[Rfam]
RNA: Fluoride riboswitch aptamer (crcB RNA motif)
Organism: Clostridium acidisoli
RNA sequence: UUUUUUAUAGGUGAUGGAGUUCACCUUAAAUGCUUAGAGCUGAUGACUCCUAUAGGUUU
Numbered sequence: 001u002u003u004u005u006u007a008u009a010g011g012u013g014a015u016g017g018a019g020u021u022c023a024c025c026u027u028a029a030a031u032g033c034u035u036a037g038a039g040c041u042g043a044u045g046a047c048u049c050c051u052a053u054a055g056g057u058u059u
Stems, first nucleotide, its partner, number of pairs: 010025004016050006032040002